[Rfam]
RNA sequence: GUUGUGUAGGCAGUGUUGUUAGCUGAUUGUUUAUUCAUACUAAUCACUACCUACACUACCAGUACAAC
Number, nucleotide and partner (000 for none) at each position: 001g000002u067003u066004g065005u064006g063007u000008a000009g060010g059011c000012a057013g056014u055015g054016u053017u000018g051019u000020u049021a048022g047023c000024u046025g045026a044027u043028u042029g041030u000031u039032u000033a000034u000035u000036c000037a000038u000039a031040c000041u029042a028043a027044u026045c025046a024047c022048u021049a020050c000051c018052u000053a016054c015055a014056c013057u012058a000059c010060c009061a000062g000063u006064a005065c004066a003067a002068c000

Record summary:
Rfam assigns this 68-nucleotide RNA from Channa argus to the family "mir-34 microRNA precursor family". For this family Rfam cites "Vertebrate microRNA genes" (Lim et al., Science, 2003). The match comes from Rfam's covariance-model search (59 bits). Its Rfam clan is "mir-34 clan". Rfam describes the family as follows. Human mir-34a was discovered computationally and later experimentally verified. The mature sequence is excised from the 5' arm of the hairpin.